The family of this 315-nucleotide sequence from Propithecus coquereli is "7SK RNA". The family has 45 seed sequences and 49,373 matches in Rfam 15.1.
RNA sequence: GGAUGUGAGGGCGAUCUGGCUGUGACAUCUGUCACCCCAUUGAUCGCCAGGGUUGAUUCGGCUGAUCUGGCUGGCUAGGUGGGUGUCCCCUUCCUCCCUCACCGCUCCCUGUGCGUCCCUCCUGAAGCUGCGUGCUCGGUCAAAGAGGACGACCUUCCCUGAUAGAGGAGGAUCCGUCUUUGGUCAAGGGUAUAUGAGUAGCUGUGCUCUCCUGCUAGAACCUCCAAACAAGCUCUCAAAAUAAAAUCCUUAACAUUUCAAACUCUCUAUGUGCCAGGAAAAUCUUAAAAACAUAUACACAAAUAUGUAAAUUAU
Numbered sequence: 001g002g003a004u005g006u007g008a009g010g011g012c013g014a015u016c017u018g019g020c021u022g023u024g025a026c027a028u029c030u031g032u033c034a035c036c037c038c039a040u041u042g043a044u045c046g047c048c049a050g051g052g053u054u055g056a057u058u059c060g061g062c063u064g065a066u067c068u069g070g071c072u073g074g075c076u077a078g079g080u081g082g083g084u085g086u087c088c089c090c091u092u093c094c095u096c097c098c099u100c101a102c103c104g105c106u107c108c109c110u111g112u113g114c115g116u117c118c119c120u121c122c123u124g125a126a127g128c129u130g131c132g133u134g135c136u137c138g139g140u141c142a143a144a145g146a147g148g149a150c151g152a153c154c155u156u157c158c159c160u161g162a163u164a165g166a167g168g169a170g171g172a173u174c175c176g177u178c179u180u181u182g183g184u185c186a187a188g189g190g191u192a193u194a195u196g197a198g199u200a201g202c203u204g205u206g207c208u209c210u211c212c213u214g215c216u217a218g219a220a221c222c223u224c225c226a227a228a229c230a231a232g233c234u235c236u237c238a239a240a241a242u243a244a245a246a247u248c249c250u251u252a253a254c255a256u257u258u259c260a261a262a263c264u265c266u267c268u269a270u271g272u273g274c275c276a277g278g279a280a281a282a283u284c285u286u287a288a289a290a291a292c293a294u295a296u297a298c299a300c301a302a303a304u305a306u307g308u309a310a311a312u313u314a315u
Base pairs, nucleotide, nucleotide: 001108002107003106005102006101007100008099009098010097011096013093014092018090019089024087025086026085027084028083029082030081031080032079033078035074036073037070038069039068042067043066044065045064046062047061048060116171117170118168119167120166121165122139123138124137125136127135128134140162141161142160147158148157149156201284203282208281210279211278212277213276214275222273224271232268
Dot-bracket structure: (((.(((((((.((...((....((((((((((.(((((..(((((((...........))).)))))))..))...)))))))))).)).))..)))))))...))).......((((((((((.((.....))))))(((....(((......))).)))..)))).)).............................(.(....(.(((((.......(.(.......(...................................)..).).))))).)).)...............................
The match comes from Rfam's covariance-model search (262 bits).